[Rfam]
The family of this 79-nucleotide RNA from Carya illinoinensis is "Small nucleolar RNA SNORD18". On this family, see Prislei et al., Nucleic Acids Res 1993: "Two different snoRNAs are encoded in introns of amphibian and human L1 ribosomal protein genes". By type it is a C/D-box small nucleolar RNA. The source organism's lineage runs through Eukaryota, Streptophytina, Embryophyta, Spermatophyta and Carya.

RNA sequence: GAGAUAUGAUGAGAAAAAUUUUGGUCCGUGUUUCUGAUUUAACCGUGACCGAUAAACCCUAAUAGCACACUCUGAUCUC
Numbered sequence: 001g002a003g004a005u006a007u008g009a010u011g012a013g014a015a016a017a018a019u020u021u022u023g024g025u026c027c028g029u030g031u032u033u034c035u036g037a038u039u040u041a042a043c044c045g046u047g048a049c050c051g052a053u054a055a056a057c058c059c060u061a062a063u064a065g066c067a068c069a070c071u072c073u074g075a076u077c078u079c
Base pairs, nucleotide, nucleotide: 001079002078003077004076